[Rfam]
RNA sequence: CAAAGCAAGGGAAAGGUUAUAGCUCUUAUGUGUCUUAUUUUGAUUACCAUAAGCGUAUGGCUUUUCCCCUGCAAUG
Numbered sequence: 001c002a003a004a005g006c007a008a009g010g011g012a013a014a015g016g017u018u019a020u021a022g023c024u025c026u027u028a029u030g031u032g033u034c035u036u037a038u039u040u041u042g043a044u045u046a047c048c049a050u051a052a053g054c055g056u057a058u059g060g061c062u063u064u065u066c067c068c069c070u071g072c073a074a075u076g
Base pairs, nucleotide, nucleotide: 005072006071007070009068010067011066013064014063017060018059019058020057021056025053026052027051028050029049030048
A member of the RNA family "mir-965 microRNA precursor family" from Daphnia magna, 76 nucleotides long. The base pairs follow the family's consensus structure, which was predicted with RNAalifold. The family has 16 seed sequences and 224 matches in Rfam 15.1.